[Rfam]
RNA sequence: CCCCCUGCUCCGGGGUGCACGGACCUGAAAGGGUCUGGCGCUGAGAUGGCUGACCAGCCGAACCCGCGAACUUGAUCCGGUUAGUACCGGCGAAAGAAGAGCUCACGCACACCCA
Numbered sequence: 001c002c003c004c005c006u007g008c009u010c011c012g013g014g015g016u017g018c019a020c021g022g023a024c025c026u027g028a029a030a031g032g033g034u035c036u037g038g039c040g041c042u043g044a045g046a047u048g049g050c051u052g053a054c055c056a057g058c059c060g061a062a063c064c065c066g067c068g069a070a071c072u073u074g075a076u077c078c079g080g081u082u083a084g085u086a087c088c089g090g091c092g093a094a095a096g097a098a099g100a101g102c103u104c105a106c107g108c109a110c111a112c113c114c115a
Base pairs, nucleotide, nucleotide: 007102008101009100010099011066012065013064014063016060017041018040020038048059049058050057051056071096072095073094077090078089079088080087
A member of the RNA family "TPP riboswitch aptamer (THI element)" from Hydrogenophaga sp. IBVHS1, 115 nucleotides long. The source organism's lineage runs through Bacteria, Pseudomonadota, Betaproteobacteria, Comamonadaceae and Hydrogenophaga. It scores 60 bits against the family's covariance model. The base pairs follow the family's consensus structure, which is taken from published work.